[Rfam]
RNA sequence: ACAAUGGCUAAAAUAGGUUAACUCAAGGGUGGUUGGCACGCUCCCAAAAGGGGGUGGUGCUAAUGACAGUUGCAGAAGGAUUAAUGCUAAUGAUUAGUUUCGGAGCGUUAAUAGUUGCGAUUAUGUCAGAUAAAAACCAUAAAUAAAAUCCACCCUUGAGUUCGCGGCUCAUUAAUAGGGUGGAAUAUCACUAAUCGGGCCAGCCCCCUUGUAGGGAACCAAGCUAUUGUAUGACUAAAGGUGUUAGCGCACCUUUG
Number, nucleotide and partner (000 for none) at each position: 001a230002c229003a228004a227005u226006g000007g224008c223009u222010a000011a000012a000013a000014u203015a000016g201017g200018u199019u198020a000021a000022c160023u159024c158025a157026a156027g155028g154029g153030u000031g150032g149033u148034u147035g000036g000037c000038a000039c056040g055041c054042u053043c052044c051045c050046a000047a000048a000049a000050g045051g044052g043053g042054g041055u040056g039057g000058u000059g000060c000061u000062a000063a000064u000065g127066a126067c125068a124069g000070u000071u000072g000073c000074a000075g000076a000077a000078g000079g000080a091081u000082u000083a000084a000085u000086g000087c000088u000089a000090a000091u080092g000093a000094u000095u000096a000097g000098u000099u000100u000101c119102g118103g000104a116105g000106c000107g000108u000109u000110a000111a000112u000113a000114g000115u000116u104117g000118c102119g101120a000121u000122u000123a000124u068125g067126u066127c065128a000129g000130a000131u000132a000133a000134a000135a000136a000137c000138c000139a000140u000141a000142a000143a000144u000145a000146a000147a034148a033149u032150c031151c000152a000153c029154c028155c027156u026157u025158g024159a023160g022161u000162u000163c000164g000165c000166g000167g000168c000169u000170c000171a186172u185173u000174a000175a000176u000177a000178g000179g000180g000181u000182g000183g000184a000185a172186u171187a000188u000189c000190a000191c000192u000193a000194a000195u000196c000197g000198g019199g018200c017201c016202a000203g014204c000205c216206c215207c214208c000209u000210u000211g000212u000213a000214g207215g206216g205217a000218a000219c000220c000221a000222a009223g008224c007225u000226a005227u004228u003229g002230u001231a000232u000233g000234a000235c000236u257237a256238a255239a254240g253241g252242u251243g250244u249245u000246a000247g000248c000249g244250c243251a242252c241253c240254u239255u238256u237257g236
Background:
Rfam assigns this 257-nucleotide RNA from Bacilli bacterium VT-13-104 to the family "BsrG". It scores 100 bits against the family's covariance model. Gene Ontology terms of the family: autolysis and toxin activity. Rfam 15.1 lists 614 matches to the family in 343 species. NCBI's taxonomy places the organism under Bacteria, Bacillati, Bacillota, Bacilli. About the family: bsrE, bsrG and bsrH pair through intermolecular interactions with antisense sRNAs. The family's consensus secondary structure was predicted with WAR.